[Rfam]
RNA: mir-24 microRNA precursor family
RNA sequence: GCCUCCUGUGCCUACUGAGCUGAUAACAGUACUACUGGAUGACUGGCUCAGUUCAGCAGGAACAGGAG
Numbered sequence: 001g002c003c004u005c006c007u008g009u010g011c012c013u014a015c016u017g018a019g020c021u022g023a024u025a026a027c028a029g030u031a032c033u034a035c036u037g038g039a040u041g042a043c044u045g046g047c048u049c050a051g052u053u054c055a056g057c058a059g060g061a062a063c064a065g066g067a068g
Stems, first nucleotide, its partner, number of pairs: 003068004008063002011060003015056009027045004